[Rfam]
The record is a 90-nucleotide RNA sequence from Medicago truncatula, which matches "MIR2617 microRNA precursor family" in Rfam. A search with the family's covariance model found it, with a score of 68 bits. Gene Ontology terms of the family: miRNA-mediated post-transcriptional gene silencing and RISC complex.
RNA sequence: AUGUAGUGUGACAUGCCCGUUUUGGGAUAUACUCUGAUGUGUUUAUUUAUUAUUUAAUUGAUUUUGGGUAACGGGGUGUUACAAACUGCA
Numbered sequence: 001a002u003g004u005a006g007u008g009u010g011a012c013a014u015g016c017c018c019g020u021u022u023u024g025g026g027a028u029a030u031a032c033u034c035u036g037a038u039g040u041g042u043u044u045a046u047u048u049a050u051u052a053u054u055u056a057a058u059u060g061a062u063u064u065u066g067g068g069u070a071a072c073g074g075g076g077u078g079u080u081a082c083a084a085a086c087u088g089c090a
Base pairs, nucleotide, nucleotide: 002090003089004088005087006086007085008082009081010080011079012078013077014076016075017074018073019072020071021070